[Rfam]
RNA sequence: UCCUCCCCCGACAUGACACAACGUCCUGCUGCGACGCUGUGCCCCGACCUGCAGUGUCUGUCGGCGGAGGA
Numbered sequence: 001u002c003c004u005c006c007c008c009c010g011a012c013a014u015g016a017c018a019c020a021a022c023g024u025c026c027u028g029c030u031g032c033g034a035c036g037c038u039g040u041g042c043c044c045c046g047a048c049c050u051g052c053a054g055u056g057u058c059u060g061u062c063g064g065c066g067g068a069g070g071a
Stems, first nucleotide, its partner, number of pairs: 001071006009063005020038001022036004046058003